Shown here is a 97-nucleotide sequence, a member of the family "malK-III RNA". Rfam classes the family as a cis-regulatory element. The sequence is in the family's curated seed alignment.
RNA sequence: GCAGUCGGCACCUCGUACGGGGCCCGUCCGCGCCGCCUCGGCGGCCGUGAUGCAAGGGCCCGCGAUGACCCGGCAGGGCUGGAGGAGACCGCACAUG
Numbered sequence: 001g002c003a004g005u006c007g008g009c010a011c012c013u014c015g016u017a018c019g020g021g022g023c024c025c026g027u028c029c030g031c032g033c034c035g036c037c038u039c040g041g042c043g044g045c046c047g048u049g050a051u052g053c054a055a056g057g058g059c060c061c062g063c064g065a066u067g068a069c070c071c072g073g074c075a076g077g078g079c080u081g082g083a084g085g086a087g088a089c090c091g092c093a094c095a096u097g
Stems, first nucleotide, its partner, number of pairs: 014064003020061006026051003033044004